The family of this 173-nucleotide RNA sequence from Carnobacterium maltaromaticum is "glmS glucosamine-6-phosphate activated ribozyme aptamer". A search with the family's covariance model found it, with a score of 103 bits. Pairs were carried over by alignment from the consensus structure, which is taken from published work.
RNA sequence: UUAAUAAGGAUAGCGCCAGGCCUUUAUUUCAUGUUAGGAACAUUCCACAAGAUGAAGGUGACGAGGAGAGAGCUUAUCGAAGGAUUCGGCGGAUGGCUCUAGGCUAAUGUAGUCUAUAAGAACUAAAAAAAAAGUAAGGCAACUUACUAACAAAAAUAGUUCUAUGCAUCUAG
Numbered sequence: 001u002u003a004a005u006a007a008g009g010a011u012a013g014c015g016c017c018a019g020g021c022c023u024u025u026a027u028u029u030c031a032u033g034u035u036a037g038g039a040a041c042a043u044u045c046c047a048c049a050a051g052a053u054g055a056a057g058g059u060g061a062c063g064a065g066g067a068g069a070g071a072g073c074u075u076a077u078c079g080a081a082g083g084a085u086u087c088g089g090c091g092g093a094u095g096g097c098u099c100u101a102g103g104c105u106a107a108u109g110u111a112g113u114c115u116a117u118a119a120g121a122a123c124u125a126a127a128a129a130a131a132a133a134g135u136a137a138g139g140c141a142a143c144u145u146a147c148u149a150a151c152a153a154a155a156a157u158a159g160u161u162c163u164a165u166g167c168a169u170c171u172a173g
Stems, first nucleotide, its partner, number of pairs: 020059008029050001069100005077089004101115006119163007133148006
Dot-bracket structure: ...................((((((((.(....................).)))))))).........(((((...((((.....))))......)))))((((((...))))))...(((((((.......((((((....))))))........)))))))..........